[Rfam]
RNA: mir-5886 microRNA precursor family
Organism: Haemonchus placei
RNA sequence: AUUGCAUUUUCUUCGAACUGAGUCAUUGGUGUGUUCUUGCACAAUGAUAAGAACACUCUCUGACUUUGGUUUGAAGAGUUAUAUGCAGU
Numbered sequence: 001a002u003u004g005c006a007u008u009u010u011c012u013u014c015g016a017a018c019u020g021a022g023u024c025a026u027u028g029g030u031g032u033g034u035u036c037u038u039g040c041a042c043a044a045u046g047a048u049a050a051g052a053a054c055a056c057u058c059u060c061u062g063a064c065u066u067u068g069g070u071u072u073g074a075a076g077a078g079u080u081a082u083a084u085g086c087a088g089u
Stems, first nucleotide, its partner, number of pairs: 001089007009081001010077009020066006028058002031056009